RNA sequence: UGAUGUAAUUGAAUAGAAAUGCGUAUAAUUAAGGGGAUAUGGCCCACAGUUUCUACCAGACCACCGUAAAUGGUUUGACUACGCAGUAAUUAUAUUUGUAU
Numbered sequence: 001u002g003a004u005g006u007a008a009u010u011g012a013a014u015a016g017a018a019a020u021g022c023g024u025a026u027a028a029u030u031a032a033g034g035g036g037a038u039a040u041g042g043c044c045c046a047c048a049g050u051u052u053c054u055a056c057c058a059g060a061c062c063a064c065c066g067u068a069a070a071u072g073g074u075u076u077g078a079c080u081a082c083g084c085a086g087u088a089a090u091u092a093u094a095u096u097u098g099u100a101u
Base pairs, nucleotide, nucleotide: 018087020085021084022083023082024081025080029048033045034044035043057077058076059075060074061073062072063071
RNA: Purine riboswitch aptamer
Organism: Oceanobacillus iheyensis